Notes
This 58-nucleotide RNA sequence belongs to the Rfam family "GP20-b RNA". Rfam classes the family as a cis-regulatory element.
RNA sequence: UGUCGGUUGAUUAGACGUAAAACAGUCAGCACAUGAGAGCGAACUCGUAAAAAGUGUA
Dot-bracket structure: ((((....[[[[.))))......]]]]......((((......))))...........